A member of the RNA family "SAM/SAH riboswitch aptamer" from Profundibacter amoris, 51 nucleotides long. The source organism's lineage runs through Bacteria, Pseudomonadati, Alphaproteobacteria, Rhodobacterales and Profundibacter. Rfam links the family to the GO terms regulation of gene expression and S-adenosylmethionine metabolic process. It scores 54 bits against the family's covariance model. The family's consensus secondary structure is taken from published work.
[Rfam]
RNA sequence: AAACCGCUACAACGGCUUCCUGACGUGGCGGUGUAACUUAUCACUGGAGCA
Numbered sequence: 001a002a003a004c005c006g007c008u009a010c011a012a013c014g015g016c017u018u019c020c021u022g023a024c025g026u027g028g029c030g031g032u033g034u035a036a037c038u039u040a041u042c043a044c045u046g047g048a049g050c051a
Stems, first nucleotide, its partner, number of pairs: 004031007013022002015050003019047002